RNA sequence: CCUGCCGAAGUUUCCCUCAGGAUAGCAGAAGCUCGUAUCAGUUUUAUGAGGUAAAGCGAAUGAUUAGACGUCUCGGGGUCGAAAUGACCUUAGCGUAUUCUCAAACUUUAAAUAUGUAAGAAGUCCCUGUUGCUUUAUUGAACGCGGACGUUUGAAUGCAGAGCUUUUAGUGGGCCAUUUUUGGUAAGCAGAACUGGCGAUGCGGGAUGAACCGAACGCGAAGUUAAGGUGCCGGAAUGCACGCUCAUCAGACACCACAAAAGGUGUUAGUUCAUCCAGACAGCCGGACGGUGGCCAUGGAAGUCGGAAUCCGCUAAGGAGUGUGUAACAACUCACCGGCCGAAUGAACUAGCCCUGAAAAUGGAUGGCGCUCAAGCGUGUUACCUAUACUUCGCCGCCAUGGCGCAAGGCCUUGGCGAGUAGGCAGGCGUGGGGGUUUGUGACGAAGCCUUGGGCGUGAGCCUGGGUCGAACGGCCCCUAGUGCAGAU
Numbered sequence: 001c002c003u004g005c006c007g008a009a010g011u012u013u014c015c016c017u018c019a020g021g022a023u024a025g026c027a028g029a030a031g032c033u034c035g036u037a038u039c040a041g042u043u044u045u046a047u048g049a050g051g052u053a054a055a056g057c058g059a060a061u062g063a064u065u066a067g068a069c070g071u072c073u074c075g076g077g078g079u080c081g082a083a084a085u086g087a088c089c090u091u092a093g094c095g096u097a098u099u100c101u102c103a104a105a106c107u108u109u110a111a112a113u114a115u116g117u118a119a120g121a122a123g124u125c126c127c128u129g130u131u132g133c134u135u136u137a138u139u140g141a142a143c144g145c146g147g148a149c150g151u152u153u154g155a156a157u158g159c160a161g162a163g164c165u166u167u168u169a170g171u172g173g174g175c176c177a178u179u180u181u182u183g184g185u186a187a188g189c190a191g192a193a194c195u196g197g198c199g200a201u202g203c204g205g206g207a208u209g210a211a212c213c214g215a216a217c218g219c220g221a222a223g224u225u226a227a228g229g230u231g232c233c234g235g236a237a238u239g240c241a242c243g244c245u246c247a248u249c250a251g252a253c254a255c256c257a258c259a260a261a262a263g264g265u266g267u268u269a270g271u272u273c274a275u276c277c278a279g280a281c282a283g284c285c286g287g288a289c290g291g292u293g294g295c296c297a298u299g300g301a302a303g304u305c306g307g308a309a310u311c312c313g314c315u316a317a318g319g320a321g322u323g324u325g326u327a328a329c330a331a332c333u334c335a336c337c338g339g340c341c342g343a344a345u346g347a348a349c350u351a352g353c354c355c356u357g358a359a360a361a362u363g364g365a366u367g368g369c370g371c372u373c374a375a376g377c378g379u380g381u382u383a384c385c386u387a388u389a390c391u392u393c394g395c396c397g398c399c400a401u402g403g404c405g406c407a408a409g410g411c412c413u414u415g416g417c418g419a420g421u422a423g424g425c426a427g428g429c430g431u432g433g434g435g436g437u438u439u440g441u442g443a444c445g446a447a448g449c450c451u452u453g454g455g456c457g458u459g460a461g462c463c464u465g466g467g468u469c470g471a472a473c474g475g476c477c478c479c480u481a482g483u484g485c486a487g488a489u
Base pairs, nucleotide, nucleotide: 001428002427003426004425005424006423011024013022014021015020027168028167029166030165031164032163033162042121043120044119045118046117047116048115054109055107056106061103062102063101066098068096069095070094073093075091076090077089078088080086123149124148125147126146128144129143130142131141174198175197176196177195179193180192181191182190183189203214204213205212218395219394220393221392222391224389228385229384230383237382239381242378243377244376262356263355264354266353267352268351269350270349271348272347273346274345275344283340284339285338286337287336289313290312291311295307296306314318319334323332324331396418397417398416399415400414402412403411404410429484431481432480433479434478435477436476437475438474440473441472448468449467454463455462456461

Overview: Eukaryotic large subunit ribosomal RNA: a 489-nucleotide part of an RNA from Pichia kudriavzevii. Lineage of the source: Eukaryota > Ascomycota > Saccharomycotina > Pichiales > Pichia. Pairs were carried over by alignment from the consensus structure, which is taken from published work.